RNA sequence: CUAUGACAAACGUUGUCAUGGCGGAAGGAG
Numbered sequence: 001c002u003a004u005g006a007c008a009a010a011c012g013u014u015g016u017c018a019u020g021g022c023g024g025a026a027g028g029a030g
Stems, first nucleotide, its partner, number of pairs: 001021008
Rfam assigns this 30-nucleotide sequence to the family "L31-Firmicutes ribosomal protein leader". The family's RNA type in Rfam is cis-regulatory leader. The sequence is in the family's curated seed alignment.